[Rfam]
RNA sequence: UCUGUGAAUCGUUACAUCAAAUGAAAGUAGUUUGUAAUACAAAGUGAUAUUACGACAAAAUCAGACGGGAUGAAACAGAAA
Numbered sequence: 001u002c003u004g005u006g007a008a009u010c011g012u013u014a015c016a017u018c019a020a021a022u023g024a025a026a027g028u029a030g031u032u033u034g035u036a037a038u039a040c041a042a043a044g045u046g047a048u049a050u051u052a053c054g055a056c057a058a059a060a061u062c063a064g065a066c067g068g069g070a071u072g073a074a075a076c077a078g079a080a081a
Base pairs, nucleotide, nucleotide: 001079002078003077004076005075009068010067011066012065013064022063023062024061030056031055032054034053035052036051037050038049039048
RNA: RAGATH-18 RNA